The record is a 106-nucleotide RNA sequence from Acidiluteibacter ferrifornacis, which matches "SAM riboswitch aptamer (S box leader)" in Rfam.

[Rfam]
RNA sequence: UACUUAUCAAGAAAGGUGGAGGGAAAGGCCCUGUGAAACCUUAGCAACCAUCCUAUUUAGUUAGGAAAGGUGCUAAUUCCUUUUUGAAUUAAAAAAAAGAUGAGUC
Number, nucleotide and partner (000 for none) at each position: 001u000002a105003c104004u103005u102006a101007u100008c099009a000010a000011g000012a000013a042014a041015g040016g039017u038018g000019g000020a000021g031022g030023g029024a000025a082026a081027g080028g079029c023030c022031c021032u000033g000034u000035g000036a000037a000038a017039c016040c015041u014042u013043a074044g073045c072046a071047a000048c070049c069050a000051u066052c065053c064054u063055a000056u000057u000058u000059a000060g000061u000062u000063a054064g053065g052066a051067a000068a000069g049070g048071u046072g045073c044074u043075a000076a000077u000078u098079c028080c027081u026082u025083u095084u094085u093086g000087a000088a000089u000090u000091a000092a000093a085094a084095a083096a000097a000098a078099g008100a007101u006102g005103a004104g003105u002106c000